[Rfam]
RNA sequence: UGGGCUUGCUGGAUGAGUGAUCGGCAAUUCCCUGACUUUAGUUCACUCACAUUUGGAGUUAAAUAUGUCUUUAAGCGCUGCUGAAAAAGCAAAAAUCGUUGCUGACUUCGCUGUUAAGCA
Numbered sequence: 001u002g003g004g005c006u007u008g009c010u011g012g013a014u015g016a017g018u019g020a021u022c023g024g025c026a027a028u029u030c031c032c033u034g035a036c037u038u039u040a041g042u043u044c045a046c047u048c049a050c051a052u053u054u055g056g057a058g059u060u061a062a063a064u065a066u067g068u069c070u071u072u073a074a075g076c077g078c079u080g081c082u083g084a085a086a087a088a089g090c091a092a093a094a095a096u097c098g099u100u101g102c103u104g105a106c107u108u109c110g111c112u113g114u115u116a117a118g119c120a
Base pairs, nucleotide, nucleotide: 007026008025009024010023011022012021052075053074054073055072056071057070058069
RNA: Ribosomal S15 leader